[Rfam]
RNA sequence: UAAAUUUAAACAUUCAUACCGUAGACAGUAGGGGCGUUCACGCUUAAUCAUCCUACCGAGGUAAGCGAUAUAGAUUCUUAAUAAAAGAGUCCAUAAUGCCCUCAUGUCUAUACAUGGGGGCUUUUUAUAGCUUAAA
Number, nucleotide and partner (000 for none) at each position: 001u000002a000003a000004a000005u000006u000007u000008a000009a000010a000011c000012a000013u000014u000015c000016a000017u000018a000019c000020c000021g000022u000023a000024g000025a000026c000027a000028g056029u055030a054031g053032g052033g051034g043035c042036g041037u000038u000039c000040a000041c036042g035043c034044u000045u000046a000047a000048u000049c000050a000051u033052c032053c031054u030055a029056c028057c000058g000059a000060g000061g000062u000063a000064a000065g000066c000067g000068a000069u000070a000071u000072a000073g000074a000075u000076u000077c000078u000079u000080a000081a000082u000083a000084a000085a000086a000087g000088a000089g000090u000091c000092c000093a000094u000095a000096a000097u000098g121099c120100c119101c118102u117103c116104a115105u114106g113107u112108c000109u000110a000111u000112a107113c106114a105115u104116g103117g102118g101119g100120g099121c098122u000123u000124u000125u000126u000127a000128u000129a000130g000131c000132u000133u000134a000135a000136a000
Ribosomal protein L10 leader: a 136-nucleotide RNA from Alkalihalobacillus alcalophilus. The family's consensus secondary structure was predicted with CMfinder. The organism belongs to Alkalihalobacillus alcalophilus, within Bacteria. About the family: This family is a putative r-protein leader autoregulatory structure found in B. subtilis and other low-GC Gram-positive bacteria. A search with the family's covariance model found it, with a score of 96 bits.